[Rfam]
The record is an 84-nucleotide RNA from Zostera marina, which matches "Small nucleolar RNA Z102/R77" in Rfam.
The family has 9 seed sequences and 1,346 matches in Rfam 15.1.
The base pairs follow the family's consensus structure, which was predicted with PFOLD.
Its family is annotated with RNA processing and nucleolus in the Gene Ontology.
NCBI's taxonomy places the organism under Eukaryota, Viridiplantae, Spermatophyta, Liliopsida, Zostera.
On this family, see Chen et al., Nucleic Acids Res 2003: "The high diversity of snoRNAs in plants: identification and comparative study of 120 snoRNA genes from Oryza sativa".

RNA sequence: UUUUGAUGUGAUGAUGGAUAUUAUUUCCCUAUUGGUUUGAUAGUCGGUAUGAUGGCUAUAUGUAUUAGCUCUAUCUGAUCAAAA
Numbered sequence: 001u002u003u004u005g006a007u008g009u010g011a012u013g014a015u016g017g018a019u020a021u022u023a024u025u026u027c028c029c030u031a032u033u034g035g036u037u038u039g040a041u042a043g044u045c046g047g048u049a050u051g052a053u054g055g056c057u058a059u060a061u062g063u064a065u066u067a068g069c070u071c072u073a074u075c076u077g078a079u080c081a082a083a084a
Stems, first nucleotide, its partner, number of pairs: 002083004039059001042057004